RAGATH-18 RNA: a 76-nucleotide sequence.
It is one of the family's seed sequences.
[Rfam]
RNA sequence: CUUGUGGACUGUUAUACAAACGAAAGUAGUAGAAAUAAAUUCAUUUCUAACGAAAUCGGACAGGAUGAAGCAAGAA
Numbered sequence: 001c002u003u004g005u006g007g008a009c010u011g012u013u014a015u016a017c018a019a020a021c022g023a024a025a026g027u028a029g030u031a032g033a034a035a036u037a038a039a040u041u042c043a044u045u046u047c048u049a050a051c052g053a054a055a056u057c058g059g060a061c062a063g064g065a066u067g068a069a070g071c072a073a074g075a076a
Stems, first nucleotide, its partner, number of pairs: 001074005009063005021058003029051002032047005
From the family's description: Actinobacteria, Firmicutes, Fusobacteria, Thermotogae (1 example).